[Rfam]
RNA sequence: GCCAUCGUAACGGGAGAACUGGGAGAACCCAGUGCCGAAGGAGCAACCGCCCCGGAAACUCUCAGGCAAGUGGACCGUUACGUGACC
Numbered sequence: 001g002c003c004a005u006c007g008u009a010a011c012g013g014g015a016g017a018a019c020u021g022g023g024a025g026a027a028c029c030c031a032g033u034g035c036c037g038a039a040g041g042a043g044c045a046a047c048c049g050c051c052c053c054g055g056a057a058a059c060u061c062u063c064a065g066g067c068a069a070g071u072g073g074a075c076c077g078u079u080a081c082g083u084g085a086c087c
Base pairs, nucleotide, nucleotide: 006082007081008080009079010078011077012076013075019032020031021030022029034067035066036065037063038062041061042060043059047055048054